[Rfam]
RNA sequence: ACAGUACAAACUGAGCAGGCGAUGAAUUGAUAAUAAUUAUUUAAUAAUCAAUUCGUGGGGCUGGGUCAUUACAAGAAUGACAGCAGAUGACGACUUUAUAACAUCUGUGGGACAGUA
Numbered sequence: 001a002c003a004g005u006a007c008a009a010a011c012u013g014a015g016c017a018g019g020c021g022a023u024g025a026a027u028u029g030a031u032a033a034u035a036a037u038u039a040u041u042u043a044a045u046a047a048u049c050a051a052u053u054c055g056u057g058g059g060g061c062u063g064g065g066u067c068a069u070u071a072c073a074a075g076a077a078u079g080a081c082a083g084c085a086g087a088u089g090a091c092g093a094c095u096u097u098a099u100a101a102c103a104u105c106u107g108u109g110g111g112a113c114a115g116u117a
Base pairs, nucleotide, nucleotide: 010116011115012114013113016111018062019061020060022056023055024054025053026052027051028050029049030048031047065081066080067079068078069077083108084107085106086105087104088103
RNA: NiCo (Nickel/Cobalt) riboswitch aptamer